[Rfam]
RNA sequence: AUACCUUCGAUAUUAAUUAAUCAUCUCUUAAUUAUUUCGAGUAUACCCCAUAAUAUACUAACGAAGGUGAAAUUUUGACUCCCUUUAGUAGUGGCCUGUACGCAUUGCGUAUAGGCCUAUAUU
Numbered sequence: 001a002u003a004c005c006u007u008c009g010a011u012a013u014u015a016a017u018u019a020a021u022c023a024u025c026u027c028u029u030a031a032u033u034a035u036u037u038c039g040a041g042u043a044u045a046c047c048c049c050a051u052a053a054u055a056u057a058c059u060a061a062c063g064a065a066g067g068u069g070a071a072a073u074u075u076u077g078a079c080u081c082c083c084u085u086u087a088g089u090a091g092u093g094g095c096c097u098g099u100a101c102g103c104a105u106u107g108c109g110u111a112u113a114g115g116c117c118u119a120u121a122u123u
Stems, first nucleotide, its partner, number of pairs: 002069008021040002023037001041051002082094002084091002095115008
RNA: RNA Staph. aureus H
Organism: Staphylococcus saprophyticus